[Rfam]
RNA: SAM (S-adenosyl methionine) riboswitch aptamer
RNA sequence: GGUCAUGAGCACCAGCGGCGUCCUACGACGCACAGCCCCGGCUUGCUGGUCGGCAACCCUCCCUCGCGGCGGGGUGCUCCGGGUGACGACCCGGCCCGCGCCGACCGGCGUGGGCAAGCGCGAGCG
Numbered sequence: 001g002g003u004c005a006u007g008a009g010c011a012c013c014a015g016c017g018g019c020g021u022c023c024u025a026c027g028a029c030g031c032a033c034a035g036c037c038c039c040g041g042c043u044u045g046c047u048g049g050u051c052g053g054c055a056a057c058c059c060u061c062c063c064u065c066g067c068g069g070c071g072g073g074g075u076g077c078u079c080c081g082g083g084u085g086a087c088g089a090c091c092c093g094g095c096c097c098g099c100g101c102c103g104a105c106c107g108g109c110g111u112g113g114g115c116a117a118g119c120g121c122g123a124g125c126g
Stems, first nucleotide, its partner, number of pairs: 001091004009051001011050006034043002052078003057074003061069002094115009